[Rfam]
RNA sequence: AAAUGUAGUUGACUUAAGGUAUACAUGUUACAUAUAGUAUACUAAGUACACUACGUUUUC
Numbered sequence: 001a002a003a004u005g006u007a008g009u010u011g012a013c014u015u016a017a018g019g020u021a022u023a024c025a026u027g028u029u030a031c032a033u034a035u036a037g038u039a040u041a042c043u044a045a046g047u048a049c050a051c052u053a054c055g056u057u058u059u060c
Stems, first nucleotide, its partner, number of pairs: 001058009012047003018043007
RNA: mir-728 microRNA precursor family